[Rfam]
RNA sequence: CUGCAAGGAUGAUUUAAGAACUGAACUCUCUCUUUCUGAUGGCUCCAUGGAGAAAGCAGAAAUUCUGAGUAGC
Numbered sequence: 001c002u003g004c005a006a007g008g009a010u011g012a013u014u015u016a017a018g019a020a021c022u023g024a025a026c027u028c029u030c031u032c033u034u035u036c037u038g039a040u041g042g043c044u045c046c047a048u049g050g051a052g053a054a055a056g057c058a059g060a061a062a063u064u065c066u067g068a069g070u071a072g073c
Stems, first nucleotide, its partner, number of pairs: 001072004
Background: The record is a 73-nucleotide RNA from Fukomys damarensis, which matches "Small nucleolar RNA SNORD26" in Rfam. Taxonomically the source falls in Fukomys (Eukaryota, Metazoa, Eumetazoa, Euteleostomi). Its Rfam clan is "SNORD26 clan". Gene Ontology terms of the family: RNA processing and nucleolus. Rfam classes the family as a C/D-box small nucleolar RNA. A reference for the family is Tycowski et al. (1996), "A mammalian gene with introns instead of exons generating stable RNA products", Nature. The match comes from Rfam's covariance-model search (74 bits). Pairs were carried over by alignment from the consensus structure, which was predicted with PFOLD.